[Rfam]
RNA sequence: GUGAAAAUGAUGUAAAUUUUAUGUUGUCUGAAUACAUUGAUGUGUUCAAAGGAACCACUGAUUCAC
Dot-bracket structure: (((((........................................................)))))
The family of this 66-nucleotide sequence from Leptobrachium leishanense is "Small nucleolar RNA SNORD42". By type it is a C/D-box small nucleolar RNA. Rfam 15.1 lists 848 matches to the family in 572 species. Rfam links the family to the GO terms nucleolus and RNA processing. Taxonomically the source falls in Leptobrachium (Eukaryota, Opisthokonta, Dipnotetrapodomorpha, Amphibia). Rfam's curators write: snoRNA U42 is found in intron 3 of the ribosomal protein L23a (RPL23a) gene in humans and is also present in mice. The literature on the family includes a 2002 paper in Mol Cell Biol by Galardi et al., "Purified box C/D snoRNPs are able to reproduce site-specific 2'-O-methylation of target RNA in vitro". Pairs were carried over by alignment from the consensus structure, which was predicted with PFOLD.